[Rfam]
RNA sequence: GGUCACGAGACCCGACGUCAAGCCCUGGCUGGUCGGGCGGCAACCCUCCGCACGUGGCGGGGUGCUCCAGGUGAUGACCCGGCACGGCUUCGGCCGUGCAAGCACGCCGC
Numbered sequence: 001g002g003u004c005a006c007g008a009g010a011c012c013c014g015a016c017g018u019c020a021a022g023c024c025c026u027g028g029c030u031g032g033u034c035g036g037g038c039g040g041c042a043a044c045c046c047u048c049c050g051c052a053c054g055u056g057g058c059g060g061g062g063u064g065c066u067c068c069a070g071g072u073g074a075u076g077a078c079c080c081g082g083c084a085c086g087g088c089u090u091c092g093g094c095c096g097u098g099c100a101a102g103c104a105c106g107c108c109g110c
Stems, first nucleotide, its partner, number of pairs: 001079004009038001011037006021030002039066003044062003048057002082099007
RNA: SAM (S-adenosyl methionine) riboswitch aptamer
Organism: Cellulomonas fimi